Description: The record is a 586-nucleotide part of an RNA from Candidatus Nitrosacidicoccus tergens, which matches "Bacterial small subunit ribosomal RNA" in Rfam. The base pairs follow the family's consensus structure, which is taken from published work. NCBI's taxonomy places the organism under Bacteria, Pseudomonadati, Chromatiales, Chromatiaceae, Candidatus Nitrosacidicoccus.

RNA sequence: UGACGGGGGCCCGCACAAGCGGUGGAGCAUGUGGUUUAAUUCGAUGCAACGCGAAGAACCUUACCUGGCCUUGACAUCUGUCGAACUUAGUAGAGAUACUUUGGUGCCUUCGGGAGCGACAAGACAGGUGCUGCAUGGCUGUCGUCAGCUCGUGUCGUGAGAUGUUGGGUUAAGUCCCGCAACGAGCGCAACCCCUACCCUUAGUUGCCAGCGAUUUAGUCGGGAACUCUAAGGGGACUGCCGUUGACAAAACGGAGGAAGGCGGGGAUGACGUCAAGUCAUCAUGGCCCUUAUGGCCAGGGCUACACACGUGCUACAAUGGUCGGUACAGAGGGAUGCAAAUCUGUGAAGUGGAGCUAAUCUCAGAAAGCCGAUCGUAGUCCGGAUUGCAGUCUGCAACUCGACUGCAUGAAGUCGGAAUCGCUAGUAAUCGCAGAUCAGCAAUGCUGCGGUGAAUACGUUCCCGGGCCUUGUACACACCGCCCGUCACACCAUGGGAGUUAGUUGCACCAGAAGUAGGUAGUCUAACCUUUGGGGGGACGCUUACCACGGUGUGGUUAAUGACUGGGGUGAAGUCGUAACAAGG
Numbered sequence: 001u002g003a004c005g006g007g008g009g010c011c012c013g014c015a016c017a018a019g020c021g022g023u024g025g026a027g028c029a030u031g032u033g034g035u036u037u038a039a040u041u042c043g044a045u046g047c048a049a050c051g052c053g054a055a056g057a058a059c060c061u062u063a064c065c066u067g068g069c070c071u072u073g074a075c076a077u078c079u080g081u082c083g084a085a086c087u088u089a090g091u092a093g094a095g096a097u098a099c100u101u102u103g104g105u106g107c108c109u110u111c112g113g114g115a116g117c118g119a120c121a122a123g124a125c126a127g128g129u130g131c132u133g134c135a136u137g138g139c140u141g142u143c144g145u146c147a148g149c150u151c152g153u154g155u156c157g158u159g160a161g162a163u164g165u166u167g168g169g170u171u172a173a174g175u176c177c178c179g180c181a182a183c184g185a186g187c188g189c190a191a192c193c194c195c196u197a198c199c200c201u202u203a204g205u206u207g208c209c210a211g212c213g214a215u216u217u218a219g220u221c222g223g224g225a226a227c228u229c230u231a232a233g234g235g236g237a238c239u240g241c242c243g244u245u246g247a248c249a250a251a252a253c254g255g256a257g258g259a260a261g262g263c264g265g266g267g268a269u270g271a272c273g274u275c276a277a278g279u280c281a282u283c284a285u286g287g288c289c290c291u292u293a294u295g296g297c298c299a300g301g302g303c304u305a306c307a308c309a310c311g312u313g314c315u316a317c318a319a320u321g322g323u324c325g326g327u328a329c330a331g332a333g334g335g336a337u338g339c340a341a342a343u344c345u346g347u348g349a350a351g352u353g354g355a356g357c358u359a360a361u362c363u364c365a366g367a368a369a370g371c372c373g374a375u376c377g378u379a380g381u382c383c384g385g386a387u388u389g390c391a392g393u394c395u396g397c398a399a400c401u402c403g404a405c406u407g408c409a410u411g412a413a414g415u416c417g418g419a420a421u422c423g424c425u426a427g428u429a430a431u432c433g434c435a436g437a438u439c440a441g442c443a444a445u446g447c448u449g450c451g452g453u454g455a456a457u458a459c460g461u462u463c464c465c466g467g468g469c470c471u472u473g474u475a476c477a478c479a480c481c482g483c484c485c486g487u488c489a490c491a492c493c494a495u496g497g498g499a500g501u502u503a504g505u506u507g508c509a510c511c512a513g514a515a516g517u518a519g520g521u522a523g524u525c526u527a528a529c530c531u532u533u534g535g536g537g538g539g540a541c542g543c544u545u546a547c548c549a550c551g552g553u554g555u556g557g558u559u560a561a562u563g564a565c566u567g568g569g570g571u572g573a574a575g576u577c578g579u580a581a582c583a584a585g586g
Stems, first nucleotide, its partner, number of pairs: 001477002003474003007471007015461002019424005024317001026315008034306002040055004064301007077124002079121005086103001089100004105116001107114002127290002130288004136284002138279003141275001143273002148187006154163003166179004193267004198235007208224002212222003238258002241255005321376007333364003338357002344351002383414001388409007430453007480585001482582001485578002490572004495567003500562012516547006523541004529536002